Record summary:
Small nucleolar RNA SNORD23: a 110-nucleotide sequence from Neogale vison. Lineage of the source: Eukaryota > Deuterostomia > Eutheria > Musteloidea > Neogale. Gene Ontology terms of the family: nucleolus and RNA processing. Rfam classes the family as a C/D-box small nucleolar RNA. On this family, see Galardi et al., Mol Cell Biol 2002: "Purified box C/D snoRNPs are able to reproduce site-specific 2'-O-methylation of target RNA in vitro". Rfam 15.1 lists 153 matches to the family in 134 species.
[Rfam]
RNA sequence: UGGCCAGUGAUGAUACCCAUCCUUGCUCCCCGUGCCCGCAGGGGCUAUGGGCGACAUCAUGGCUGCCCCCAGGUUGGGCCGGUUGGGCUGACGCCUGGGGACUGAGGGCA
Numbered sequence: 001u002g003g004c005c006a007g008u009g010a011u012g013a014u015a016c017c018c019a020u021c022c023u024u025g026c027u028c029c030c031c032g033u034g035c036c037c038g039c040a041g042g043g044g045c046u047a048u049g050g051g052c053g054a055c056a057u058c059a060u061g062g063c064u065g066c067c068c069c070c071a072g073g074u075u076g077g078g079c080c081g082g083u084u085g086g087g088c089u090g091a092c093g094c095c096u097g098g099g100g101a102c103u104g105a106g107g108g109c110a
Stems, first nucleotide, its partner, number of pairs: 001110002004107002